[Rfam]
RNA sequence: CCUCCCGCUUGCCUCCCUGAGCGGGGCCUGGAUGGAUCAGGCUUACCCCGGCAGCAGCUUGCCGGGGUUUUUUAU
Numbered sequence: 001c002c003u004c005c006c007g008c009u010u011g012c013c014u015c016c017c018u019g020a021g022c023g024g025g026g027c028c029u030g031g032a033u034g035g036a037u038c039a040g041g042c043u044u045a046c047c048c049c050g051g052c053a054g055c056a057g058c059u060u061g062c063c064g065g066g067g068u069u070u071u072u073u074a075u
Base pairs, nucleotide, nucleotide: 004025005024006023007022008021009020026042027041028040029039030038031037046067047066048065049064050063051062052061053060
A member of the RNA family "Burkholderia RNA 7 (anti-hemB)" from Chromobacterium sp. LK11, 75 nucleotides long. Lineage of the source: Bacteria > Betaproteobacteria > Neisseriales > Chromobacteriaceae > Chromobacterium. Pairs were carried over by alignment from the consensus structure, which is taken from published work. The literature on the family includes a 2013 paper in Genomics by Ramos et al., "Experimental identification of small non-coding regulatory RNAs in the opportunistic human pathogen Burkholderia cenocepacia J2315". This RNA motif was identified by computational search in b-proteobacteria Burkholderia. Co-purified with Hfq, expression confirmed by Northern blot.